Shown here is a 98-nucleotide RNA sequence from Ruminococcus difficilis, a member of the family "Glycine riboswitch aptamer". A search with the family's covariance model found it, with a score of 63 bits. This family represents the bacterial glycine riboswitch. Glycine riboswitches usually consist of two metabolite-binding aptamers domains with similar structures in tandem. The aptamers cooperatively bind glycine to regulate the expression of downstream genes. In Bacillus subtilis, this riboswitch is found upstream of the gcvT operon which controls glycine degradation.
RNA sequence: GGACGGCACUCCGGAGAAUCCCGAUCGAUCGGGUGCCGAAGGGGCAAGCGCGCAGUUUUGCGCGUCAAUCUCUCAGGCAAAAGGACGGAGCUUUUUGA
Numbered sequence: 001g002g003a004c005g006g007c008a009c010u011c012c013g014g015a016g017a018a019u020c021c022c023g024a025u026c027g028a029u030c031g032g033g034u035g036c037c038g039a040a041g042g043g044g045c046a047a048g049c050g051c052g053c054a055g056u057u058u059u060g061c062g063c064g065u066c067a068a069u070c071u072c073u074c075a076g077g078c079a080a081a082a083g084g085a086c087g088g089a090g091c092u093u094u095u096u097g098a
Stems, first nucleotide, its partner, number of pairs: 006093001009090005020033004035078003038074002042072003048065005